[Rfam]
RNA sequence: UCAUGAAUACGUAACUGGCGUACACGGGGAUUACCGUGAGGGAGCGUAUUCUCAUACAUAGCCGUUCGCCUGGGCAAGGAGG
Numbered sequence: 001u002c003a004u005g006a007a008u009a010c011g012u013a014a015c016u017g018g019c020g021u022a023c024a025c026g027g028g029g030a031u032u033a034c035c036g037u038g039a040g041g042g043a044g045c046g047u048a049u050u051c052u053c054a055u056a057c058a059u060a061g062c063c064g065u066u067c068g069c070c071u072g073g074g075c076a077a078g079g080a081g082g
Stems, first nucleotide, its partner, number of pairs: 005051008015041002017070004024037004059077001061075003
RNA: ZMP/ZTP riboswitch aptamer (pfl RNA motif)